[Rfam]
RNA sequence: UCGAUAUGUCGCCCGCAAAGCUGCCUUUCGUCGCCCUCUCUUUUGAGAGAUCAUCUUUUAGUUGUUUUCUCCCCAGCAAAGAAAGAUGCAAGCGCGGCGGUAGCUAG
Numbered sequence: 001u002c003g004a005u006a007u008g009u010c011g012c013c014c015g016c017a018a019a020g021c022u023g024c025c026u027u028u029c030g031u032c033g034c035c036c037u038c039u040c041u042u043u044u045g046a047g048a049g050a051u052c053a054u055c056u057u058u059u060a061g062u063u064g065u066u067u068u069c070u071c072c073c074c075a076g077c078a079a080a081g082a083a084a085g086a087u088g089c090a091a092g093c094g095c096g097g098c099g100g101u102a103g104c105u106a107g
Base pairs, nucleotide, nucleotide: 011104012103013100014099015098016097020093021092045071046070047069048068049067052064053063055061

A member of the RNA family "Rhizobiales sRNA Atu_Ti4" from Arminella tumorigenes, 107 nucleotides long. By type it is a small RNA. A reference for the family is Wilms et al. (2012), "Deep sequencing uncovers numerous small RNAs on all four replicons of the plant pathogen Agrobacterium tumefaciens", RNA Biol. The family's consensus secondary structure was predicted with WAR. A search with the family's covariance model found it, with a score of 68 bits.